A member of the RNA family "ALIL pseudoknot" from Nguyenibacter vanlangensis, 109 nucleotides long. The match comes from Rfam's covariance-model search (84 bits). Lineage of the source: Bacteria > Pseudomonadati > Pseudomonadota > Acetobacterales > Nguyenibacter. For this family Rfam cites "Apical loop-internal loop RNA pseudoknots: a new type of stimulator of -1 translational frameshifting in bacteria" (Mazauric et al., J Biol Chem, 2008).
RNA sequence: GGCUUAUUUUGCGAUGGCGGAGUUCGACCGCCGACCCAAGCCAUGAUCGCCUUCAUCGAUCAGCACCGCCGGGGUCGAGCCGAUCGCGCGUGUUCUGCCGAUCGCCCCA
Numbered sequence: 001g002g003c004u005u006a007u008u009u010u011g012c013g014a015u016g017g018c019g020g021a022g023u024u025c026g027a028c029c030g031c032c033g034a035c036c037c038a039a040g041c042c043a044u045g046a047u048c049g050c051c052u053u054c055a056u057c058g059a060u061c062a063g064c065a066c067c068g069c070c071g072g073g074g075u076c077g078a079g080c081c082g083a084u085c086g087c088g089c090g091u092g093u094u095c096u097g098c099c100g101a102u103c104g105c106c107c108c109a
Stems, first nucleotide, its partner, number of pairs: 016032005071108004081104002084101003090095001